[Rfam]
RNA: Group II catalytic intron D1-D4-4
Organism: Frigoriglobus tundricola
RNA sequence: CAGCGGGUGCGAUUCCCGCCCGGCAACUGGGUCGCUCCAGCCGGUAGCUAUCGGAGCGGCGGUGGAGGUAACGAAGCCGUCGAAGCCUUCGAGACAACACCCCGUUGCGACGGGGUGGCGAGUCCGCGGGUCGUAACUGUU
Numbered sequence: 001c002a003g004c005g006g007g008u009g010c011g012a013u014u015c016c017c018g019c020c021c022g023g024c025a026a027c028u029g030g031g032u033c034g035c036u037c038c039a040g041c042c043g044g045u046a047g048c049u050a051u052c053g054g055a056g057c058g059g060c061g062g063u064g065g066a067g068g069u070a071a072c073g074a075a076g077c078c079g080u081c082g083a084a085g086c087c088u089u090c091g092a093g094a095c096a097a098c099a100c101c102c103c104g105u106u107g108c109g110a111c112g113g114g115g116u117g118g119c120g121a122g123u124c125c126g127c128g129g130g131u132c133g134u135a136a137c138u139g140u141u
Base pairs, nucleotide, nucleotide: 020044021043022042023041024040052091053090054089055088056087057082058081059080060079061078062077067072099116100115101114102113103112104111118134119133120132